[Rfam]
RNA sequence: UUGGUUCUGGUUCACGGAUCGCAUCCCGCGAUACGACCCAGCGACC
Dot-bracket structure: ..(((.((((....((.(((((.....))))).))..))))..)))
Rfam assigns this 46-nucleotide sequence to the family "L31-Actinobacteria ribosomal protein leader". The literature on the family includes a 2020 paper in BMC Microbiol by Eckert and Weinberg, "Discovery of 20 novel ribosomal leader candidates in bacteria and archaea". The base pairs follow the family's consensus structure, which is taken from published work. Rfam classes the family as a cis-regulatory leader. The family is grouped with related families in Rfam's "Ribosomal Protein L31 Leader clan". The sequence is in the family's curated seed alignment.